[Rfam]
RNA: ASpks TB sRNA
RNA sequence: CUUCACCGAUCCCAGCCACAACGGCCGCCCUUCCACCCGUCCUUGACCGUAAGUGGCCAACAACGCCUGCGCCUC
Numbered sequence: 001c002u003u004c005a006c007c008g009a010u011c012c013c014a015g016c017c018a019c020a021a022c023g024g025c026c027g028c029c030c031u032u033c034c035a036c037c038c039g040u041c042c043u044u045g046a047c048c049g050u051a052a053g054u055g056g057c058c059a060a061c062a063a064c065g066c067c068u069g070c071g072c073c074u075c
Stems, first nucleotide, its partner, number of pairs: 015025003031071001033069001038065002043060003047056003